This 135-nucleotide RNA from Synaphobranchus kaupii belongs to the Rfam family "Small nucleolar RNA SNORA3/SNORA45 family".
The members of this family belong to the H/ACA class of snoRNAs which are thought to guide the sites of modification of uridines to pseudouridines. This family includes mouse snoMBI-28 and human homologues ACA3 (SNORA3) and ACA3-2 (SNORA45). Both ACA3 and ACA3-2 share the same host gene. MBI-28, ACA3 and ACA3-2 are all predicted to guide the pseudouridylation of residues in 28S rRNA.
By type it is an H/ACA-box small nucleolar RNA.
Rfam 15.1 lists 2,080 matches to the family in 639 species.

[Rfam]
RNA sequence: AGCGAGACUAGAGUCACUCCCUGACAGCUCCUCAUUGUCCUGGUGUGCUAGAGUCCUCGCAGAGCAAAGCCCUCUCUGCUUAUUCAUUGGCUGCAGCCUCACAUGGCCCAGCCAAUCACCGGCUCAGAGACAAGA
Numbered sequence: 001a002g003c004g005a006g007a008c009u010a011g012a013g014u015c016a017c018u019c020c021c022u023g024a025c026a027g028c029u030c031c032u033c034a035u036u037g038u039c040c041u042g043g044u045g046u047g048c049u050a051g052a053g054u055c056c057u058c059g060c061a062g063a064g065c066a067a068a069g070c071c072c073u074c075u076c077u078g079c080u081u082a083u084u085c086a087u088u089g090g091c092u093g094c095a096g097c098c099u100c101a102c103a104u105g106g107c108c109c110a111g112c113c114a115a116u117c118a119c120c121g122g123c124u125c126a127g128a129g130a131c132a133a134g135a
Stems, first nucleotide, its partner, number of pairs: 002060005007054003012049002015047003019043002023039004074127002078123003086116005092110002097105001